[Rfam]
Annotation
The family of this 97-nucleotide RNA from Ornithorhynchus anatinus is "mir-210 microRNA precursor family". The family's consensus secondary structure was predicted with WAR.

RNA sequence: UCCAGGAGCAGGACAGCCACUGACUAACGCACAUUGUGCUGUUGGCGACGCCACUGUGCGUGUGACAGCGGCUAACCUGGCCCUCGGACACCAGCAG
Numbered sequence: 001u002c003c004a005g006g007a008g009c010a011g012g013a014c015a016g017c018c019a020c021u022g023a024c025u026a027a028c029g030c031a032c033a034u035u036g037u038g039c040u041g042u043u044g045g046c047g048a049c050g051c052c053a054c055u056g057u058g059c060g061u062g063u064g065a066c067a068g069c070g071g072c073u074a075a076c077c078u079g080g081c082c083c084u085c086g087g088a089c090a091c092c093a094g095c096a097g
Stems, first nucleotide, its partner, number of pairs: 005083002009079004015073004020068003024064001025062002028060006035053002
Dot-bracket structure: ....((..((((..((((.(((.(((.((((((.((...............)).)))))))).).))).))))..))))..))..............